[Rfam]
RNA sequence: GCUGCUUCUUACUGGUGAACUCUUCCUUGUAUAAUCAAAGUGGGAGAUGUUCAUGUUUCCGAAGCAUAAAUUAAUUAGCCAGUAUUAAACAGCACAGCAUUUUCCCCAUUUUUGCUGUGUUACCUGUCUCCUGGUAUAUUU
Numbered sequence: 001g002c003u004g005c006u007u008c009u010u011a012c013u014g015g016u017g018a019a020c021u022c023u024u025c026c027u028u029g030u031a032u033a034a035u036c037a038a039a040g041u042g043g044g045a046g047a048u049g050u051u052c053a054u055g056u057u058u059c060c061g062a063a064g065c066a067u068a069a070a071u072u073a074a075u076u077a078g079c080c081a082g083u084a085u086u087a088a089a090c091a092g093c094a095c096a097g098c099a100u101u102u103u104c105c106c107c108a109u110u111u112u113u114g115c116u117g118u119g120u121u122a123c124c125u126g127u128c129u130c131c132u133g134g135u136a137u138a139u140u141u
Base pairs, nucleotide, nucleotide: 003066004065005064006063007062008061016053017052018051019050020049021047022046023045024044025043078135079134080133081132082131084129091121092120093119095117096116097115098114099113
A member of the RNA family "small nucleolar RNA snoR137" from Jatropha curcas, 141 nucleotides long. The literature on the family includes a 2009 paper in Nucleic Acids Res by Chen and Wu, "Mining small RNA sequencing data: a new approach to identify small nucleolar RNAs in Arabidopsis". Rfam links the family to the GO terms nucleolus and RNA processing. The family's RNA type in Rfam is H/ACA-box small nucleolar RNA. NCBI's taxonomy places the organism under Eukaryota, Tracheophyta, eudicotyledons, Crotonoideae, Jatropha.